Purine riboswitch aptamer: a 101-nucleotide RNA from Lederbergia citrea.
Gene Ontology term of the family: purine nucleobase biosynthetic process.
NCBI's taxonomy places the organism under Bacteria, Bacillota, Bacilli, Bacillaceae, Lederbergia.
A search with the family's covariance model found it, with a score of 74 bits.

RNA sequence: UGUAGGUGUCAACAAAGGCCUCGUAUAUCAUGGGAAUAAGGCCCAUAAGUAUCUACCCGAUUACCGUAAAUAAUUGGACUAUGAGGAAAGUGGAAUUUGGG
Dot-bracket structure: ..................(((((((..(.(((((.......))))).)........(((((((.......)))))))..)))))))...............